This 103-nucleotide RNA sequence from Streptococcus agalactiae belongs to the Rfam family "FMN riboswitch aptamer (RFN element)". Pairs were carried over by alignment from the consensus structure, which is taken from published work. Rfam's curators put it in the seed alignment. The source organism's lineage runs through Bacteria, Bacilli, Streptococcus, Streptococcus agalactiae and Streptococcus agalactiae serogroup III.
Nucleotides: 103
Stems, first nucleotide, its partner, number of pairs: 001103004011023003025089002027079002029042004037077002059075005081092003
Number, partner (000 for none) and nucleotide at each position: 001103c002102u003101u004100c005000g006000g007000g008000g009000u010000c011023a012022g013021g014000u015000g016000a017000a018000a019000a020000u021013c022012c023011u024000a025089a026088c027079c028078g029042g030041c031040g032039g033000u034000a035000u036000a037077g038076u039032c040031c041030g042029c043000g044000a045000g046000c047000u048000u049000u050000c051000g052000a053000g054000c055000a056000u057000g058000a059075a060074c061073u062072g063071g064000u065000g066000u067000g068000a069000u070000u071063c072062c073061a074060g075059u076038a077037c078028c079027g080000a081092c082091a083090g084000u085000a086000a087000a088026g089025u090083c091082u092081g093000g094000a095000u096000g097000a098000g099000a100004g101003a102002a103001g